[Rfam]
RNA sequence: GCCUCGCACCUUUCACUCGGAUCGUCCGGCACGUACCUGCCGGUGAAGGGACAUGUAA
Numbered sequence: 001g002c003c004u005c006g007c008a009c010c011u012u013u014c015a016c017u018c019g020g021a022u023c024g025u026c027c028g029g030c031a032c033g034u035a036c037c038u039g040c041c042g043g044u045g046a047a048g049g050g051a052c053a054u055g056u057a058a
Base pairs, nucleotide, nucleotide: 009050010049011048012047013046014045015044026043027042028041029040030039031038
A member of the RNA family "msiK RNA" from Arcanobacterium bovis, 58 nucleotides long. NCBI's taxonomy places the organism under Bacteria, Bacillati, Actinomycetota, Actinomycetes, Arcanobacterium. Pairs were carried over by alignment from the consensus structure, which is taken from published work. Rfam classes the family as a cis-regulatory element.